[Rfam]
Nucleotides: 103
Base pairs, nucleotide, nucleotide: 008054009053010052011051012050015045016044020042021041022039023036024035025034026033027032056076057075058074059073060072061071062070063069078098080101084096085095086094
Number, partner (000 for none) and nucleotide at each position: 001000g002000u003000g004000g005000g006000g007000c008054g009053c010052a011051c012050c013000u014000a015045g016044g017000g018000u019000u020042c021041c022039g023036c024035c025034g026033g027032c028000a029000g030000g031000c032027g033026c034025c035024g036023g037000g038000c039022c040000u041021g042020g043000u044016c045015c046000g047000a048000g049000a050012g051011g052010u053009g054008c055000a056076g057075g058074c059073g060072g061071c062070u063069c064000c065000g066000c067000g068000a069063g070062g071061g072060c073059c074058g075057u076056u077000c078098c079000a080101c081000g082000g083000c084096g085095g086094g087000a088000c089000a090000a091000a092000a093000g094086c095085c096084c097000g098078g099000g100000a101080g102000g103000c
Record summary
Guanidine-I riboswitch aptamer: a 103-nucleotide RNA sequence from Nonomuraea jiangxiensis. The base pairs follow the family's consensus structure.